[Rfam]
RNA sequence: AUGAAGUUUUAGGGAGAUAACCACUUUAAGAGUGGUAGCCGAAGGAACAAAUAAUAUAUGCCGAUAUAUUAUGAAUAUCUCAGGCAAAAGUAUCUAAGAUGGACA
Numbered sequence: 001a002u003g004a005a006g007u008u009u010u011a012g013g014g015a016g017a018u019a020a021c022c023a024c025u026u027u028a029a030g031a032g033u034g035g036u037a038g039c040c041g042a043a044g045g046a047a048c049a050a051a052u053a054a055u056a057u058a059u060g061c062c063g064a065u066a067u068a069u070u071a072u073g074a075a076u077a078u079c080u081c082a083g084g085c086a087a088a089a090g091u092a093u094c095u096a097a098g099a100u101g102g103a104c105a
Base pairs, nucleotide, nucleotide: 006100007099008098009097010096011095012094013093020036021035022034023033038085039084040083041081042080045079046078051072052071053070054069055068056067057066058065059064